[Rfam]
RNA sequence: UCUCCAUUGUGUUCUAUGGCUUUUUAUUCCUAUGUGAUUUGACACAUGCUUCAUAUAGGGAUGAAAGCCAUGAAAUGUACUGUGAG
Numbered sequence: 001u002c003u004c005c006a007u008u009g010u011g012u013u014c015u016a017u018g019g020c021u022u023u024u025u026a027u028u029c030c031u032a033u034g035u036g037a038u039u040u041g042a043c044a045c046a047u048g049c050u051u052c053a054u055a056u057a058g059g060g061a062u063g064a065a066a067g068c069c070a071u072g073a074a075a076u077g078u079a080c081u082g083u084g085a086g
Stems, first nucleotide, its partner, number of pairs: 002086003005082002008079006015072009026062012
The record is an 86-nucleotide sequence from Scyliorhinus torazame, which matches "mir-135 microRNA precursor family" in Rfam.
The base pairs follow the family's consensus structure, which was predicted with PFOLD.
Taxonomically the source falls in Scyliorhinus (Eukaryota, Metazoa, Elasmobranchii, Galeoidea).
Gene Ontology terms of the family: RISC complex and gene silencing by miRNA.
On this family, see Lagos-Quintana et al., Curr Biol 2002: "Identification of tissue-specific microRNAs from mouse".